[Rfam]
RNA sequence: CUAUGAGUCAAAUAAAACUCAUGGCGGAAGGAG
Numbered sequence: 001c002u003a004u005g006a007g008u009c010a011a012a013u014a015a016a017a018c019u020c021a022u023g024g025c026g027g028a029a030g031g032a033g
Base pairs, nucleotide, nucleotide: 001024002023003022004021005020006019007018008017
Overview
Shown here is a 33-nucleotide sequence from Acholeplasma granularum, a member of the family "L31-Firmicutes ribosomal protein leader". The family's RNA type in Rfam is cis-regulatory leader. Clan: Ribosomal Protein L31 Leader clan.